[Rfam]
RNA sequence: CUUUGUUGAUGAAUGACCUCUUGGGCCAUUGUGUCUGGGUCAUAGAAGCCCUGUAAUGGAACUCUCAAGGG
Numbered sequence: 001c002u003u004u005g006u007u008g009a010u011g012a013a014u015g016a017c018c019u020c021u022u023g024g025g026c027c028a029u030u031g032u033g034u035c036u037g038g039g040u041c042a043u044a045g046a047a048g049c050c051c052u053g054u055a056a057u058g059g060a061a062c063u064c065u066c067a068a069g070g071g
Base pairs, nucleotide, nucleotide: 001071002070003069004068

About this RNA: Shown here is a 71-nucleotide RNA from Muntiacus reevesi, a member of the family "Small nucleolar RNA SNORD66". A reference for the family is Huttenhofer et al. (2001), "RNomics: an experimental approach that identifies 201 candidates for novel, small, non-messenger RNAs in mouse", EMBO J. Gene Ontology terms of the family: nucleolus and RNA processing. Pairs were carried over by alignment from the consensus structure, which was predicted with RNAalifold. It scores 35 bits against the family's covariance model. Lineage of the source: Eukaryota > Laurasiatheria > Ruminantia > Cervidae > Muntiacus.